[Rfam]
RNA sequence: UUGCCGGUGUGAGUCCGGUCCGGGUAACUGUCAGGGGGCCGAUAGCAGACUGGCCGGCUUCGUGGGGAAACCUGCGGGGUCGAAGCCCAGUGUCGAGAGCCCUUCAAGGGGUAGCAACGGAUCGGUCCGUAGCAUGA
Numbered sequence: 001u002u003g004c005c006g007g008u009g010u011g012a013g014u015c016c017g018g019u020c021c022g023g024g025u026a027a028c029u030g031u032c033a034g035g036g037g038g039c040c041g042a043u044a045g046c047a048g049a050c051u052g053g054c055c056g057g058c059u060u061c062g063u064g065g066g067g068a069a070a071c072c073u074g075c076g077g078g079g080u081c082g083a084a085g086c087c088c089a090g091u092g093u094c095g096a097g098a099g100c101c102c103u104u105c106a107a108g109g110g111g112u113a114g115c116a117a118c119g120g121a122u123c124g125g126u127c128c129g130u131a132g133c134a135u136g137a
Base pairs, nucleotide, nucleotide: 021041022040023039049091050090051089052088053087055082056081057080058079059078060077064073066071098112100110101109114130115129
About this RNA
Shown here is a 137-nucleotide RNA from an Alcaligenaceae bacterium, a member of the family "Group II catalytic intron D1-D4-4". The family has 90 seed sequences and 840 matches in Rfam 15.1. The source organism's lineage runs through Bacteria, Pseudomonadati, Betaproteobacteria, Burkholderiales and Alcaligenaceae. Rfam describes the family as follows. Group II introns are found in rRNA, tRNA and mRNA of organelles in fungi, plants and protists, and also in mRNA in bacteria. The match comes from Rfam's covariance-model search (80 bits).